[Rfam]
Record summary
The record is a 178-nucleotide RNA from Prunus armeniaca, which matches "Small nucleolar RNA Z112" in Rfam. Lineage of the source: Eukaryota > Spermatophyta > eudicotyledons > Rosales > Prunus. Gene Ontology terms of the family: nucleolus and RNA processing. The family is grouped with related families in Rfam's "SNORD49 clan". On this family, see Liang et al., Nucleic Acids Res 2002: "A novel gene organization: intronic snoRNA gene clusters from Oryza sativa". The family's consensus secondary structure was predicted with PFOLD.
RNA sequence: GAUACCAAUGAGGAAGAAUGCCCAAAGUGAUAGGAAGUGCCGUAUGACACUUUAAACAGCGGCGGCAACACGGAAAGAGCCGCUUCGUUCCCAUCCGCCGAUGAUUUGUUCAUUGGUCGGGAACAGGUGGCUCCGGUGUACCGCCGUGUGUGUGAUUUGGAACGGGAUUCUGAGGGUC
Numbered sequence: 001g002a003u004a005c006c007a008a009u010g011a012g013g014a015a016g017a018a019u020g021c022c023c024a025a026a027g028u029g030a031u032a033g034g035a036a037g038u039g040c041c042g043u044a045u046g047a048c049a050c051u052u053u054a055a056a057c058a059g060c061g062g063c064g065g066c067a068a069c070a071c072g073g074a075a076a077g078a079g080c081c082g083c084u085u086c087g088u089u090c091c092c093a094u095c096c097g098c099c100g101a102u103g104a105u106u107u108g109u110u111c112a113u114u115g116g117u118c119g120g121g122a123a124c125a126g127g128u129g130g131c132u133c134c135g136g137u138g139u140a141c142c143g144c145c146g147u148g149u150g151u152g153u154g155a156u157u158u159g160g161a162a163c164g165g166g167a168u169u170c171u172g173a174g175g176g177u178c
Base pairs, nucleotide, nucleotide: 001178002177003176005175006174077133078132079131080130081129082128083127084126085125087124088123089122090121091120092119098116099115100114101113102112103111104110